Rfam assigns this 101-nucleotide sequence to the family "SAM-I/IV (S-adenosyl methionine) riboswitch aptamer". The family is grouped with related families in Rfam's "SAM clan". The base pairs follow the family's consensus structure, which is taken from published work. Its family is annotated with S-adenosylmethionine metabolic process and regulation of gene expression in the Gene Ontology.
RNA sequence: AUCUUACAUCAAGAGAGGGCUGACGCGCCCCGCCAACCUGCGGCCCGUGCAAGGUGGUUUUCCCUAAAGGGAGAUGUGGCCGAAAGGCAAUAUCGAGCGUC
Numbered sequence: 001a002u003c004u005u006a007c008a009u010c011a012a013g014a015g016a017g018g019g020c021u022g023a024c025g026c027g028c029c030c031c032g033c034c035a036a037c038c039u040g041c042g043g044c045c046c047g048u049g050c051a052a053g054g055u056g057g058u059u060u061u062c063c064c065u066a067a068a069g070g071g072a073g074a075u076g077u078g079g080c081c082g083a084a085a086g087g088c089a090a091u092a093u094c095g096a097g098c099g100u101c
Stems, first nucleotide, its partner, number of pairs: 006077005015031001017030004032058003037054003040050003045099001079088003